[Rfam]
A member of the RNA family "mir-7563 microRNA precursor family" from Ameiurus melas, 76 nucleotides long. A search with the family's covariance model found it, with a score of 80 bits.
RNA sequence: ACCGUGUACUUACCUACUGUACAGUAGCUGAGAUACAUAUAUUUCUCCUACUAUAUAGCAGGUAAGUACGCCGUUU
Numbered sequence: 001a002c003c004g005u006g007u008a009c010u011u012a013c014c015u016a017c018u019g020u021a022c023a024g025u026a027g028c029u030g031a032g033a034u035a036c037a038u039a040u041a042u043u044u045c046u047c048c049u050a051c052u053a054u055a056u057a058g059c060a061g062g063u064a065a066g067u068a069c070g071c072c073g074u075u076u
Base pairs, nucleotide, nucleotide: 001074002073004071005070006069007068008067009066010065011064012063013062014061015060017058018057019056020055021054023052024051025050026049027048030045031044033042034041035040
Record summary
Gene Ontology terms of the family: RISC complex and miRNA-mediated post-transcriptional gene silencing.